[Rfam]
RNA sequence: AUGCCCCUGCUGUGUUUGUGCAUCAUAUGAAAAUUGGAGCCAAUACUCCAGAAAAGGGGGAUGAUACUGAUUGCGGUGUGCAAGCCUGCCUCGUAGCAGGAAGCCUGAUGCGUCGUGAUUCCUCCGCCCUGAUGAACAGGGCUACAAUUGGAUUAUGGUUACGGCAUGUGCGGGGGCUUU
Number, nucleotide and partner (000 for none) at each position: 001a000002u000003g177004c176005c175006c174007c173008u172009g171010c170011u000012g167013u166014g165015u164016u000017u163018g162019u161020g000021c000022a000023u000024c000025a000026u000027a000028u000029g000030a000031a000032a149033a148034u147035u146036g145037g000038a143039g142040c141041c140042a000043a000044u000045a000046c000047u000048c000049c000050a000051g000052a000053a000054a000055a000056g125057g124058g123059g122060g121061a120062u000063g000064a000065u000066a116067c000068u115069g114070a113071u112072u000073g111074c110075g000076g000077u000078g000079u000080g104081c103082a000083a000084g000085c100086c099087u098088g097089c096090c000091u000092c000093g000094u000095a000096g089097c088098a087099g086100g085101a000102a000103g081104c080105c000106u000107g000108a000109u000110g074111c073112g071113u070114c069115g068116u066117g000118a000119u000120u061121c060122c059123u058124c057125c056126g000127c000128c000129c000130u000131g000132a000133u000134g000135a000136a000137c000138a000139g000140g041141g040142c039143u038144a000145c036146a035147a034148u033149u032150g000151g000152a000153u000154u000155a000156u000157g000158g000159u000160u000161a019162c018163g017164g015165c014166a013167u012168g000169u000170g010171c009172g008173g007174g006175g005176g004177c003178u000179u000180u000